[Rfam]
RNA sequence: UGCAACAUCCAUCAAAGGAGUAGUUCCUCAUCCCAGGGCUACUUUACCAUAUUCUGAAUUU
Numbered sequence: 001u002g003c004a005a006c007a008u009c010c011a012u013c014a015a016a017g018g019a020g021u022a023g024u025u026c027c028u029c030a031u032c033c034c035a036g037g038g039c040u041a042c043u044u045u046a047c048c049a050u051a052u053u054c055u056g057a058a059u060u061u
Base pairs, nucleotide, nucleotide: 017045018044019043020042021041022040023039024038025037026036
RNA: Plastid-psbN 5UTR RNA